[Rfam]
RNA sequence: UAGCACUUACAGCACUUCUUGAAUUUGUCCAGUAGGUCUUCCUGUCUUUACCGGAAGGCCCAC
Numbered sequence: 001u002a003g004c005a006c007u008u009a010c011a012g013c014a015c016u017u018c019u020u021g022a023a024u025u026u027g028u029c030c031a032g033u034a035g036g037u038c039u040u041c042c043u044g045u046c047u048u049u050a051c052c053g054g055a056a057g058g059c060c061c062a063c
Stems, first nucleotide, its partner, number of pairs: 035060008044051002